[Rfam]
RNA sequence: UGAAGGAUACGGAAGCAGAAAAACUGUUCCGGAUCCGGGAGGCGGAAGAAACAAAAAACAACCUGAUGCAGGUAGCCAGUGAGCAUAUUGCGCCGCUUCAGGAUGCUGCAGAUCUGGAAAUUGCAACGGAGGAAGAAACCUC
Numbered sequence: 001u002g003a004a005g006g007a008u009a010c011g012g013a014a015g016c017a018g019a020a021a022a023a024c025u026g027u028u029c030c031g032g033a034u035c036c037g038g039g040a041g042g043c044g045g046a047a048g049a050a051a052c053a054a055a056a057a058a059c060a061a062c063c064u065g066a067u068g069c070a071g072g073u074a075g076c077c078a079g080u081g082a083g084c085a086u087a088u089u090g091c092g093c094c095g096c097u098u099c100a101g102g103a104u105g106c107u108g109c110a111g112a113u114c115u116g117g118a119a120a121u122u123g124c125a126a127c128g129g130a131g132g133a134a135g136a137a138a139c140c141u142c
Base pairs, nucleotide, nucleotide: 008037011034015029017027063129064128065127068124069123073095075093076092079091080090081089082088097118098117099116101115102114103113104112
Shown here is a 142-nucleotide RNA sequence from Escherichia sp. 4_1_40B, a member of the family "IS009".
On this family, see Raghavan et al., Genome Res 2011: "Genome-wide detection of novel regulatory RNAs in E. coli".
By type it is a non-coding RNA gene.